This 84-nucleotide RNA sequence from Pseudomonas indica belongs to the Rfam family "gyrA RNA".
A search with the family's covariance model found it, with a score of 52 bits.
RNA sequence: UCGUGAGUCGUUGUGGCCAGGUGCCACAGCGGCGCGCCUCGUGACAUUCCAGGAUGGAUGCUCGGGGUUCAUCAGAAAAAGGAA
Numbered sequence: 001u002c003g004u005g006a007g008u009c010g011u012u013g014u015g016g017c018c019a020g021g022u023g024c025c026a027c028a029g030c031g032g033c034g035c036g037c038c039u040c041g042u043g044a045c046a047u048u049c050c051a052g053g054a055u056g057g058a059u060g061c062u063c064g065g066g067g068u069u070c071a072u073c074a075g076a077a078a079a080a081g082g083a084a
Stems, first nucleotide, its partner, number of pairs: 007033011034069001036068006043061001045060005

By type it is a cis-regulatory element. NCBI's taxonomy places the organism under Bacteria, Pseudomonadati, Gammaproteobacteria, Pseudomonadales, Pseudomonas.